[Rfam]
RNA sequence: GCUGAGCUCAGCAACGCGAGCUUGUAACCCGUGUGGGGGCGAUUGGGUGCUUUGAAUGAUCUAUCUGAUCCAAUAGCUGGUUUGUAUAUCUGGGCUGAAUAUUGGCCCGCCCGAUCCAAGAUGGGAGUUUAAUUGCAACUGGGUUAGGCGAAGGCCUCAAUCAGUUGUGUUCUAAAUUAGAGGGGAACGCGUGAGGCUGGUUUAACAGAGCAGCGAUUACCUCUAGCUCUCAUCGGUGGAUGGAAAACGGGCCGGUUGUCCGGUCAAAUCAAGUAGCAGUUGGGCCUGCUAUAAACCAAACGGGCAUUCUU
Numbered sequence: 001g002c003u004g005a006g007c008u009c010a011g012c013a014a015c016g017c018g019a020g021c022u023u024g025u026a027a028c029c030c031g032u033g034u035g036g037g038g039g040c041g042a043u044u045g046g047g048u049g050c051u052u053u054g055a056a057u058g059a060u061c062u063a064u065c066u067g068a069u070c071c072a073a074u075a076g077c078u079g080g081u082u083u084g085u086a087u088a089u090c091u092g093g094g095c096u097g098a099a100u101a102u103u104g105g106c107c108c109g110c111c112c113g114a115u116c117c118a119a120g121a122u123g124g125g126a127g128u129u130u131a132a133u134u135g136c137a138a139c140u141g142g143g144u145u146a147g148g149c150g151a152a153g154g155c156c157u158c159a160a161u162c163a164g165u166u167g168u169g170u171u172c173u174a175a176a177u178u179a180g181a182g183g184g185g186a187a188c189g190c191g192u193g194a195g196g197c198u199g200g201u202u203u204a205a206c207a208g209a210g211c212a213g214c215g216a217u218u219a220c221c222u223c224u225a226g227c228u229c230u231c232a233u234c235g236g237u238g239g240a241u242g243g244a245a246a247a248c249g250g251g252c253c254g255g256u257u258g259u260c261c262g263g264u265c266a267a268a269u270c271a272a273g274u275a276g277c278a279g280u281u282g283g284g285c286c287u288g289c290u291a292u293a294a295a296c297c298a299a300a301c302g303g304g305c306a307u308u309c310u311u
Stems, first nucleotide, its partner, number of pairs: 001040003004023006028037003045309008054301001057298002060294001062291002065288001067286001069284006076277003079270006090262001092261003097256001102255008111243002114241005120234009132171001134169009144159001146157004178225006190215003197208003